RNA sequence: CUUGAUCGAACCCACCCACAACGGCCGACCCGGCUCACGAUCUUGCCCAUAAACUGCCAACAACGCCUGAGCCUC
Numbered sequence: 001c002u003u004g005a006u007c008g009a010a011c012c013c014a015c016c017c018a019c020a021a022c023g024g025c026c027g028a029c030c031c032g033g034c035u036c037a038c039g040a041u042c043u044u045g046c047c048c049a050u051a052a053a054c055u056g057c058c059a060a061c062a063a064c065g066c067c068u069g070a071g072c073c074u075c
Stems, first nucleotide, its partner, number of pairs: 016024002034071003038065002043060003047056001
This 75-nucleotide RNA from Mycobacterium ulcerans belongs to the Rfam family "ASpks TB sRNA". Taxonomically the source falls in Mycobacterium ulcerans (Bacteria, Actinomycetota, Actinomycetes, Mycobacterium). It is one of the family's seed sequences.